Shown here is a 220-nucleotide sequence from Octopus sinensis, a member of the family "Protozoan signal recognition particle RNA".
Its Rfam clan is "SRP clan".
[Rfam]
RNA sequence: ACAAUUGAUAUUAACAUUGAUUUAUCCCAAAUUAAGAAGGCUUUGUGGUCGGUAGUAAGUGAUGCCUGUUGCCAUCGUAUGGUUGAUGUGAACAUGAUAGUAUUAUGAAAGUAAUACUCUCAGGUUUGAAUAAUAAGGGUCGUACUGGCUCAGGCCGGAAACGGAGCAAGCAAAAGACCCUGCUUCUUCUAUACGGUGAUUACACCAAUGGCAUCGCUUU
Number, nucleotide and partner (000 for none) at each position: 001a000002c019003a018004a017005u016006u000007g000008a000009u000010a000011u000012u000013a000014a000015c000016a005017u004018u003019g002020a000021u000022u000023u000024a000025u000026c000027c000028c000029a000030a000031a000032u000033u000034a000035a000036g000037a000038a000039g000040g000041c000042u000043u000044u000045g000046u000047g000048g000049u000050c000051g000052g000053u000054a000055g220056u000057a218058a000059g217060u216061g215062a214063u213064g212065c211066c000067u207068g206069u000070u204071g203072c000073c198074a197075u196076c195077g194078u193079a192080u191081g190082g189083u000084u000085g186086a185087u000088g183089u182090g000091a127092a126093c124094a000095u122096g121097a120098u000099a118100g117101u116102a115103u114104u113105a112106u111107g000108a000109a000110a000111g106112u105113a104114a103115u102116a101117c100118u099119c000120u097121c096122a095123g000124g093125u000126u092127u091128g000129a000130a000131u135132a000133a000134u000135a131136a181137g180138g179139g178140u177141c176142g000143u000144a000145c000146u173147g000148g171149c170150u169151c000152a000153g000154g000155c164156c163157g162158g000159a000160a000161a000162c157163g156164g155165a000166g000167c000168a000169a150170g149171c148172a000173a146174a000175a000176g141177a140178c139179c138180c137181u136182g089183c088184u000185u086186c085187u000188u000189c082190u081191a080192u079193a078194c077195g076196g075197u074198g073199a000200u000201u000202a000203c071204a070205c000206c068207a067208a000209u000210g000211g065212c064213a063214u062215c061216g060217c059218u057219u000220u055

Gene Ontology terms of the family: signal recognition particle, endoplasmic reticulum targeting and SRP-dependent cotranslational protein targeting to membrane, signal sequence recognition.
For this family Rfam cites "Crystal structure of the ribonucleoprotein core of the signal recognition particle" (Batey et al., Science, 2000).